RNA: Pseudoknot of upstream pseudoknot domain (UPD) of the 3'UTR
Organism: Furovirus tritici
RNA sequence: GGCGUUCUACAGUACGUUUAAACUGUAGG
Numbered sequence: 001g002g003c004g005u006u007c008u009a010c011a012g013u014a015c016g017u018u019u020a021a022a023c024u025g026u027a028g029g
Stems, first nucleotide, its partner, number of pairs: 003016003007028007